RNA: U2 spliceosomal RNA
Organism: Theropithecus gelada
RNA sequence: AUCACCUCUCAGUGUUUUGGCUAAGAUCAAGUGUAGUAUCUGUUCUUAUAAGCUUAAUAUCUGAUAUGUCCUCUAUCUGAGGAUACUAUAUUAAAUGGGUUUUUGGAGCAGGGAGAUGGGAUAGGAGCUUACUCUGUCCACUCCAGGCAUUGACCUGAUAUUUUAGUACCUCCAGAAAUGGUGCACCCCCU
Numbered sequence: 001a002u003c004a005c006c007u008c009u010c011a012g013u014g015u016u017u018u019g020g021c022u023a024a025g026a027u028c029a030a031g032u033g034u035a036g037u038a039u040c041u042g043u044u045c046u047u048a049u050a051a052g053c054u055u056a057a058u059a060u061c062u063g064a065u066a067u068g069u070c071c072u073c074u075a076u077c078u079g080a081g082g083a084u085a086c087u088a089u090a091u092u093a094a095a096u097g098g099g100u101u102u103u104u105g106g107a108g109c110a111g112g113g114a115g116a117u118g119g120g121a122u123a124g125g126a127g128c129u130u131a132c133u134c135u136g137u138c139c140a141c142u143c144c145a146g147g148c149a150u151u152g153a154c155c156u157g158a159u160a161u162u163u164u165a166g167u168a169c170c171u172c173c174a175g176a177a178a179u180g181g182u183g184c185a186c187c188c189c190c191u
Stems, first nucleotide, its partner, number of pairs: 007026003011022003047066003051062002068084006112144004118138002124135004147184006155175003